[Rfam]
RNA sequence: CUCGUGACUGACGUCGUGCCAGAGGCGCGUUUACAACGUUUAUGGUUUUUAUAGAAUCCUGUAAAUGCACUAUCUGGUACGACAGUCAGGCAUGC
Numbered sequence: 001c002u003c004g005u006g007a008c009u010g011a012c013g014u015c016g017u018g019c020c021a022g023a024g025g026c027g028c029g030u031u032u033a034c035a036a037c038g039u040u041u042a043u044g045g046u047u048u049u050u051a052u053a054g055a056a057u058c059c060u061g062u063a064a065a066u067g068c069a070c071u072a073u074c075u076g077g078u079a080c081g082a083c084a085g086u087c088a089g090g091c092a093u094g095c
Stems, first nucleotide, its partner, number of pairs: 008089004015081009025070001027068009
Dot-bracket structure: .......((((...(((((((((.(.(((((((((........................))))))))).)..)))))))))....))))......